[Rfam]
RNA sequence: UAUCUUUGCAGCCGAGAAAAGUUCUCAUACAUAAUAAUCAUUGAAAUAAUAUUUGCAUG
Numbered sequence: 001u002a003u004c005u006u007u008g009c010a011g012c013c014g015a016g017a018a019a020a021g022u023u024c025u026c027a028u029a030c031a032u033a034a035u036a037a038u039c040a041u042u043g044a045a046a047u048a049a050u051a052u053u054u055g056c057a058u059g
Stems, first nucleotide, its partner, number of pairs: 014026005

Annotation: Rfam assigns this 59-nucleotide RNA sequence to the family "S15-Flavobacteria ribosomal protein leader". It is annotated as a cis-regulatory leader. The sequence is in the family's curated seed alignment. The family is grouped with related families in Rfam's "Ribosomal Protein S15 Leader clan".